[Rfam]
RNA sequence: GUUGAGGCUCCAUCUACAAAUGGAUAAUUCUUUAGUGUUAGUCUAGACCUAGUUUAGUAUAGUAAUAGUAAAAAACGAGCAAUAUAAGCCUUUUUAAAAUUAAAAAGAAGGCUUAUAUUGCUCGUUU
Numbered sequence: 001g002u003u004g005a006g007g008c009u010c011c012a013u014c015u016a017c018a019a020a021u022g023g024a025u026a027a028u029u030c031u032u033u034a035g036u037g038u039u040a041g042u043c044u045a046g047a048c049c050u051a052g053u054u055u056a057g058u059a060u061a062g063u064a065a066u067a068g069u070a071a072a073a074a075a076c077g078a079g080c081a082a083u084a085u086a087a088g089c090c091u092u093u094u095u096a097a098a099a100u101u102a103a104a105a106a107g108a109a110g111g112c113u114u115a116u117a118u119u120g121c122u123c124g125u126u127u
Base pairs, nucleotide, nucleotide: 009024010023011022012021013020073127074126075125076124077123078122079121080120081119082118083117084116085115090107091106092105093104094103
RNA: Plastid-psbA-1 3UTR RNA